The family of this 76-nucleotide part of an RNA is "Archaeal large subunit ribosomal RNA". Rfam links the family to the GO terms structural constituent of ribosome and ribosome. Pairs were carried over by alignment from the consensus structure, which is taken from published work.
RNA sequence: UGCCCAGUGCCAGCACCUGAACACUCCGUUCAAGGAGACGAAGGGCUGGUAAACGGCGGCGCUAACUAUGAGCGUC
Numbered sequence: 001u002g003c004c005c006a007g008u009g010c011c012a013g014c015a016c017c018u019g020a021a022c023a024c025u026c027c028g029u030u031c032a033a034g035g036a037g038a039c040g041a042a043g044g045g046c047u048g049g050u051a052a053a054c055g056g057c058g059g060c061g062c063u064a065a066c067u068a069u070g071a072g073c074g075u076c
Base pairs, nucleotide, nucleotide: 002057003056004055007054008053009050010049011048012047013046016045017044018043024037025036026035027034058076059075060074061073062072063071
Notes
The match comes from Rfam's covariance-model search (2437 bits).